The record is a 133-nucleotide sequence from Mus musculus, which matches "Small nucleolar RNA SNORA32" in Rfam.
The family's RNA type in Rfam is H/ACA-box small nucleolar RNA.
Pairs were carried over by alignment from the consensus structure, which was predicted with RNAfold.
Rfam 15.1 lists 615 matches to the family in 234 species.
From the family's description: ACA32 is a member of the H/ACA class of snoRNA that guide the sites of modification of uridines to pseudouridines.

[Rfam]
RNA sequence: UAGUGAUUACUAAUGUCUGCAUGAAGGUUUCUCAAAAGACAGAAAUGUUACUGUGGACAUGACCAUAAAGAGAAAAUUCCCAUGAGGUUUUUCAUAUGCUACUUGACUAGCAGUUACCCUGUUGGGUACAUGC
Number, nucleotide and partner (000 for none) at each position: 001u000002a000003g063004u062005g000006a060007u059008u000009a000010c056011u055012a054013a000014u000015g000016u000017c000018u000019g000020c000021a000022u000023g051024a000025a049026g048027g000028u000029u000030u000031c000032u000033c000034a000035a000036a000037a000038g000039a000040c000041a000042g000043a000044a000045a000046u000047g000048u026049u025050a000051c023052u000053g000054u012055g011056g010057a000058c000059a007060u006061g000062a004063c003064c000065a000066u000067a000068a000069a000070g000071a000072g000073a000074a000075a000076a000077u000078u000079c126080c125081c124082a123083u000084g000085a000086g119087g118088u000089u116090u000091u000092u000093c000094a000095u000096a000097u112098g111099c110100u000101a000102c000103u000104u000105g000106a000107c000108u000109a000110g099111c098112a097113g000114u000115u000116a089117c000118c087119c086120u000121g000122u000123u082124g081125g080126g079127u000128a000129c000130a000131u000132g000133c000

NCBI's taxonomy places the organism under Eukaryota, Mammalia, Theria, Euarchontoglires, Mus. It scores 73 bits against the family's covariance model.